[Rfam]
RNA sequence: GGAUCAAUGAUGACUUCUCCAUACAUAUUCCGUGGAAAUCUAAACAAAAUGAGUGAAAAAUCCUCAUCGACCUGAGAUCC
Numbered sequence: 001g002g003a004u005c006a007a008u009g010a011u012g013a014c015u016u017c018u019c020c021a022u023a024c025a026u027a028u029u030c031c032g033u034g035g036a037a038a039u040c041u042a043a044a045c046a047a048a049a050u051g052a053g054u055g056a057a058a059a060a061u062c063c064u065c066a067u068c069g070a071c072c073u074g075a076g077a078u079c080c
Stems, first nucleotide, its partner, number of pairs: 001080005026055005033046002
The family of this 80-nucleotide RNA sequence from Chrysochloris asiatica is "Small nucleolar RNA SNORD116". Pairs were carried over by alignment from the consensus structure, which was predicted with PFOLD. A reference for the family is Cavaille et al. (2000), "Identification of brain-specific and imprinted small nucleolar RNA genes exhibiting an unusual genomic organization", Proc Natl Acad Sci U S A.